[Rfam]
RNA sequence: AAAAGGAAAAUAGAUCAGGCCAUUAAGUCUUGGACUUUGUGGAGCCGGGCCGGUUUUGCGGCAGCAGGAUGGCAAUUAUUGCAGAAAUACCUGUGGGACUAUA
Number, nucleotide and partner (000 for none) at each position: 001a000002a000003a000004a000005g000006g000007a000008a000009a000010a102011u101012a100013g099014a000015u000016c097017a000018g046019g045020c044021c000022a040023u039024u000025a037026a036027g035028u000029c000030u000031u000032g000033g000034a000035c027036u026037u025038u000039g023040u022041g000042g000043a000044g020045c019046c018047g000048g000049g062050c061051c060052g059053g000054u000055u000056u000057u000058g000059c052060g051061g050062c049063a000064g094065c093066a092067g091068g090069a000070u000071g000072g000073c000074a000075a000076u000077u000078a000079u000080u000081g000082c000083a000084g000085a000086a000087a000088u000089a000090c068091c067092u066093g065094u064095g000096g000097g016098a000099c013100u012101a011102u010103a000

Rfam assigns this 103-nucleotide RNA sequence from Pseudobacteroides cellulosolvens to the family "NiCo (Nickel/Cobalt) riboswitch aptamer". Taxonomically the source falls in Pseudobacteroides cellulosolvens (Bacteria, Bacillota, Eubacteriales, Oscillospiraceae). The family's consensus secondary structure is taken from published work. The family is grouped with related families in Rfam's "NiCo_riboswitches". A search with the family's covariance model found it, with a score of 63 bits.